A member of the RNA family "Group II catalytic intron D1-D4-7" from Nitrincola tibetensis, 148 nucleotides long. The source organism's lineage runs through Bacteria, Gammaproteobacteria, Oceanospirillales, Oceanospirillaceae and Nitrincola. It scores 111 bits against the family's covariance model. The pairing is the family consensus, mapped onto this sequence. About the family: Group II introns are found in rRNA, tRNA and mRNA of organelles in fungi, plants and protists, and also in mRNA in bacteria.
RNA sequence: CCUGUUGUUCAGCCAAUAGUAGCCUAAGGAUAGUGCAUCGCUGGUAACGGCGUUGUGCGAAGCUUCCUGACAACGUAACCCCACAUUUGUGGUGCAUUCUGACUGUGAGGUCGGAUGUAGAUUUUGCGAGCAACACGCAAAUGAGGUG
Numbered sequence: 001c002c003u004g005u006u007g008u009u010c011a012g013c014c015a016a017u018a019g020u021a022g023c024c025u026a027a028g029g030a031u032a033g034u035g036c037a038u039c040g041c042u043g044g045u046a047a048c049g050g051c052g053u054u055g056u057g058c059g060a061a062g063c064u065u066c067c068u069g070a071c072a073a074c075g076u077a078a079c080c081c082c083a084c085a086u087u088u089g090u091g092g093u094g095c096a097u098u099c100u101g102a103c104u105g106u107g108a109g110g111u112c113g114g115a116u117g118u119a120g121a122u123u124u125u126g127c128g129a130g131c132a133a134c135a136c137g138c139a140a141a142u143g144a145g146g147u148g
Base pairs, nucleotide, nucleotide: 002019003018004017005016006015007014027068028067029066030065033058034057035056036055037054039052040051041050042049043048082092093119094118095117096116103110104109123141124140125139126138127137128136

Record summary: Rfam links the family to the GO term Group II intron splicing.